malK-III RNA: a 102-nucleotide sequence. The sequence is in the family's curated seed alignment.
RNA sequence: CGGUCUGGUGCCGCGUACGGGAUCCGUCCAGCAGGCCCUCGUGGUCGGCAGAUGCAGGGAUCCGCGACGGCAUCGACGUGCAGAGGAGGCGCGCCAGACAUG
Numbered sequence: 001c002g003g004u005c006u007g008g009u010g011c012c013g014c015g016u017a018c019g020g021g022a023u024c025c026g027u028c029c030a031g032c033a034g035g036c037c038c039u040c041g042u043g044g045u046c047g048g049c050a051g052a053u054g055c056a057g058g059g060a061u062c063c064g065c066g067a068c069g070g071c072a073u074c075g076a077c078g079u080g081c082a083g084a085g086g087a088g089g090c091g092c093g094c095c096a097g098a099c100a101u102g
Stems, first nucleotide, its partner, number of pairs: 014066003020063006026053003032048001034046004